[Rfam]
Rfam assigns this 92-nucleotide RNA from Falsibacillus albus to the family "Bacillaceae-1 RNA". A search with the family's covariance model found it, with a score of 37 bits.
RNA sequence: GUAUUAGGAAGUUCGAUUAAGUUCGGCAGCGACCCAUCGCACGAAGUGUUCCUUGUCCUGUGCCAACAUCGAAUGACCUCACUUCGUGUGAG
Numbered sequence: 001g002u003a004u005u006a007g008g009a010a011g012u013u014c015g016a017u018u019a020a021g022u023u024c025g026g027c028a029g030c031g032a033c034c035c036a037u038c039g040c041a042c043g044a045a046g047u048g049u050u051c052c053u054u055g056u057c058c059u060g061u062g063c064c065a066a067c068a069u070c071g072a073a074u075g076a077c078c079u080c081a082c083u084u085c086g087u088g089u090g091a092g
Base pairs, nucleotide, nucleotide: 011074012073013072014071015070016069017068025064026063027062028061078092079091080090081089082088

Overview:
The family's consensus secondary structure is taken from published work. The organism belongs to Falsibacillus, within Bacteria.